[Rfam]
The family of this 132-nucleotide RNA sequence from Hipposideros armiger is "Small nucleolar RNA SNORA43". Its Rfam clan is "SNORA17 clan". Rfam classes the family as an H/ACA-box small nucleolar RNA. Taxonomically the source falls in Hipposideros (Eukaryota, Gnathostomata, Sarcopterygii, Laurasiatheria). Rfam 15.1 lists 492 matches to the family in 142 species. ACA43 is a member of the H/ACA class of snoRNA that guide the sites of modification of uridines to pseudouridines.
RNA sequence: GAUGCUGGACUGCCAGCACCACGGACGCAGCUGCCGUGCUGCACCUGUACUUCGGGGCAAAGAGGAAGUGGCUAUUUCUACACUCAGUGCUCAGAACAGUGAGCCCUGAGAAUGGUUUGUAGCCUAACAUUC
Number, nucleotide and partner (000 for none) at each position: 001g000002a000003u059004g058005c057006u056007g053008g052009a000010c000011u000012g000013c000014c000015a000016g000017c000018a000019c000020c000021a048022c047023g046024g045025a000026c000027g000028c000029a000030g000031c000032u000033g000034c000035c000036g000037u000038g000039c000040u000041g000042c000043a000044c000045c024046u023047g022048u021049a000050c000051u000052u008053c007054g000055g000056g006057g005058c004059a003060a000061a000062g000063a000064g000065g000066a000067a000068g000069u000070g124071g123072c122073u000074a000075u000076u000077u000078c115079u114080a113081c000082a000083c110084u109085c000086a000087g000088u000089g104090c103091u102092c101093a100094g000095a000096a000097c000098a000099g000100u093101g092102a091103g090104c089105c000106c000107u000108g000109a084110g083111a000112a000113u080114g079115g078116u000117u000118u000119g000120u000121a000122g072123c071124c070125u000126a000127a000128c000129a000130u000131u000132c000